[Rfam]
RNA sequence: CGUCUUUCCUGCUGGGCACAAUAGGAGCAUUCACAUUGCAGCCCAUCAGAUUCCUCAAAUCUGCAAACUCUACU
Number, nucleotide and partner (000 for none) at each position: 001c000002g000003u000004c000005u000006u000007u000008c000009c000010u000011g000012c000013u045014g044015g043016g042017c041018a000019c000020a074021a000022u072023a071024g070025g069026a000027g039028c038029a037030u000031u000032c000033a000034c000035a000036u000037u029038g028039c027040a000041g017042c016043c015044c014045a013046u000047c063048a062049g061050a060051u059052u058053c000054c000055u000056c000057a000058a052059a051060u050061c049062u048063g047064c000065a000066a000067a000068c000069u025070c024071u023072a022073c000074u020

Shown here is a 74-nucleotide RNA sequence from Alligator mississippiensis, a member of the family "Mammalian CPEB3 ribozyme". Its family is annotated with RNA nuclease activity in the Gene Ontology. Pairs were carried over by alignment from the consensus structure, which is taken from published work.